[Rfam]
RNA: Mammalian CPEB3 ribozyme
RNA sequence: AUUGCCGUGACAGCCAUAGCAGAAGCGUUCACAACAUGGCCCCUGUCAGAUUCCAAUGAAUCUAAAGUCUGCU
Numbered sequence: 001a002u003u004g005c006c007g008u009g010a011c012a013g014c015c016a017u018a019g020c021a022g023a024a025g026c027g028u029u030c031a032c033a034a035c036a037u038g039g040c041c042c043c044u045g046u047c048a049g050a051u052u053c054c055a056a057u058g059a060a061u062c063u064a065a066a067g068u069c070u071g072c073u
Base pairs, nucleotide, nucleotide: 009042013040014039015038018073019072020071021070022069023068025037027035048063049062050061051060052059053058